[Rfam]
RNA sequence: GGCAGGUACUGCGGGAGCCCGUGGCAGCUGUCAUAAAGCGCCGGGCUGAGAGGGCGUCGGAGCCGACCGCUUGACCUGAUCCGGUUAAUGCCGGCGUAGGGAAGGAAACAGACAGAUGG
Numbered sequence: 001g002g003c004a005g006g007u008a009c010u011g012c013g014g015g016a017g018c019c020c021g022u023g024g025c026a027g028c029u030g031u032c033a034u035a036a037a038g039c040g041c042c043g044g045g046c047u048g049a050g051a052g053g054g055c056g057u058c059g060g061a062g063c064c065g066a067c068c069g070c071u072u073g074a075c076c077u078g079a080u081c082c083g084g085u086u087a088a089u090g091c092c093g094g095c096g097u098a099g100g101g102a103a104g105g106a107a108a109c110a111g112a113c114a115g116a117u118g119g
Stems, first nucleotide, its partner, number of pairs: 007106001009104002011070004017046005053064003075100004081094004

Shown here is a 119-nucleotide sequence from Pseudarthrobacter sp., a member of the family "TPP riboswitch aptamer (THI element)". A search with the family's covariance model found it, with a score of 65 bits.